[Rfam]
The record is a 137-nucleotide RNA sequence from Haplochromis burtoni, which matches "Small nucleolar RNA SNORA14" in Rfam.
It scores 53 bits against the family's covariance model.
The source organism's lineage runs through Eukaryota, Neopterygii, Acanthomorphata, Cichlomorphae and Haplochromis.
The family's RNA type in Rfam is H/ACA-box small nucleolar RNA.
About the family: ACA14 is a member of the H/ACA class of snoRNA that guide the sites of modification of uridines to pseudouridines.
Rfam links the family to the GO terms RNA processing and nucleolus.

RNA sequence: UAGCAUCCUUGAAAACCCCCCAGUAGCCAUUUGUGAUUUCUGGGACAAGAAAGGGUGCAAGAAUAAACCUUAGAAUCAUCCAAAGCUGAGAGCUGUGUGUCAGUAGCUCUCGGUUAUUUCACCUCUAAGACAAAAAU
Numbered sequence: 001u002a003g004c005a006u007c008c009u010u011g012a013a014a015a016c017c018c019c020c021c022a023g024u025a026g027c028c029a030u031u032u033g034u035g036a037u038u039u040c041u042g043g044g045a046c047a048a049g050a051a052a053g054g055g056u057g058c059a060a061g062a063a064u065a066a067a068c069c070u071u072a073g074a075a076u077c078a079u080c081c082a083a084a085g086c087u088g089a090g091a092g093c094u095g096u097g098u099g100u101c102a103g104u105a106g107c108u109c110u111c112g113g114u115u116a117u118u119u120c121a122c123c124u125c126u127a128a129g130a131c132a133a134a135a136a137u
Stems, first nucleotide, its partner, number of pairs: 003058004009050002019044005025038002063137002069129006084115007092107002098103001